[Rfam]
RNA sequence: UAAAUAUUUCGGUAGGUGAGGCUACCACAGGGAUAUGGAUUACUGCCGCAAACUAGUGGAGACACUACAAGAUGGUCAACAGUUUAUGUCGAACGCAAGGCAUUGACUAAUGUAAUUUCACCGCCCUGUGAAGCUAAAGCUUGAACGGUGAAUAGAUUA
Number, nucleotide and partner (000 for none) at each position: 001u000002a000003a000004a000005u155006a000007u000008u152009u151010c150011g146012g000013u098014a000015g141016g140017u139018g000019a000020g135021g134022c133023u000024a000025c000026c130027a129028c128029a127030g126031g125032g124033a000034u000035a000036u000037g000038g000039a116040u115041u114042a113043c112044u000045g076046c075047c074048g073049c000050a000051a000052a000053c000054u000055a066056g065057u064058g063059g000060a000061g000062a000063c058064a057065c056066u055067a000068c000069a000070a000071g000072a000073u048074g047075g046076u045077c000078a000079a000080c000081a000082g107083u106084u105085u000086a000087u000088g101089u100090c099091g000092a000093a000094c000095g000096c000097a000098a013099g090100g089101c088102a000103u000104u000105g084106a083107c082108u000109a000110a000111u000112g043113u042114a041115a040116u039117u000118u000119c000120a000121c000122c000123g000124c032125c031126c030127u029128g028129u027130g026131a000132a000133g022134c021135u020136a000137a000138a000139g017140c016141u015142u000143g000144a000145a000146c011147g000148g000149u000150g010151a009152a008153u000154a000155g005156a000157u000158u000159a000
The record is a 159-nucleotide sequence from Eubacterium callanderi, which matches "M-box riboswitch aptamer (ykoK leader)" in Rfam. The organism belongs to Eubacterium, within Bacteria. A search with the family's covariance model found it, with a score of 111 bits. Rfam describes the family as follows. M-box riboswitch, also know as ykoK leader is described as a metaloregulatory RNA that sense divalent metals and function as a genetic control element of genes related to divalent metal transport in bacteria. It was first reported upstream of the B.subtilis ykoK gene and genes with related functions in other bacteria. Pairs were carried over by alignment from the consensus structure.